[Rfam]
RNA sequence: CGCUGUGCUUAACCGGCCAUUAACCUUUCCGGUCCACGAAUAGGGAUAUCCAGAUUGUCUGGAUCCUGAGUGGGAACUCUUGUCCACUCUGUUUGAUGCCUCCCUGUAGACUCGUGACAAGCCGCUCUCUGGAGCGGCUUCUUUUUU
Numbered sequence: 001c002g003c004u005g006u007g008c009u010u011a012a013c014c015g016g017c018c019a020u021u022a023a024c025c026u027u028u029c030c031g032g033u034c035c036a037c038g039a040a041u042a043g044g045g046a047u048a049u050c051c052a053g054a055u056u057g058u059c060u061g062g063a064u065c066c067u068g069a070g071u072g073g074g075a076a077c078u079c080u081u082g083u084c085c086a087c088u089c090u091g092u093u094u095g096a097u098g099c100c101u102c103c104c105u106g107u108a109g110a111c112u113c114g115u116g117a118c119a120a121g122c123c124g125c126u127c128u129c130u131g132g133a134g135c136g137g138c139u140u141c142u143u144u145u146u147u
Base pairs, nucleotide, nucleotide: 001044003043004042005041006015007014021036025032026031048064049063050062051061068089069088070087071086072085073084096107097106098105117142119140120139121138122137123136124135125134126133127132
Notes
The family of this 147-nucleotide RNA from Paramagnetospirillum magnetotacticum is "Alphaproteobacterial sRNA BjrC1505". Rfam's curators put it in the seed alignment. On this family, see Madhugiri et al., RNA Biol 2012: "Small RNAs of the Bradyrhizobium/Rhodopseudomonas lineage and their analysis". By type it is a small RNA.